Notes:
Small nucleolar RNA snoR2/U65: a 155-nucleotide sequence from Centaurea solstitialis. Rfam classes the family as an H/ACA-box small nucleolar RNA.
RNA sequence: GGUUCGAUGCCACGUUGACGGUAGCCAAAAGUGCAAUGACCGACAAUGCUAUGAUUGAACCAAUAACAAGCUUUGUGUCGUUUCGCAUUCUUAUAGGAACCUGUGAAUCGAUUGAUAUCCGUUCGUUCACAGAGCCGUUUUUUGCGAUUACAUUU
Numbered sequence: 001g002g003u004u005c006g007a008u009g010c011c012a013c014g015u016u017g018a019c020g021g022u023a024g025c026c027a028a029a030a031g032u033g034c035a036a037u038g039a040c041c042g043a044c045a046a047u048g049c050u051a052u053g054a055u056u057g058a059a060c061c062a063a064u065a066a067c068a069a070g071c072u073u074u075g076u077g078u079c080g081u082u083u084c085g086c087a088u089u090c091u092u093a094u095a096g097g098a099a100c101c102u103g104u105g106a107a108u109c110g111a112u113u114g115a116u117a118u119c120c121g122u123u124c125g126u127u128c129a130c131a132g133a134g135c136c137g138u139u140u141u142u143u144g145c146g147a148u149u150a151c152a153u154u155u
Base pairs, nucleotide, nucleotide: 002060003059004058005057006056007055008054009052013048014047015046016045017044020041021040022039024034025033083147084146085145086144087143096136097135101132102131103130105128106127107126108125
It scores 121 bits against the family's covariance model.
For this family Rfam cites "Localization and processing from a polycistronic precursor of novel snoRNAs in maize" (Shaw et al., J Cell Sci, 1998).
The organism belongs to Centaurea, within Eukaryota.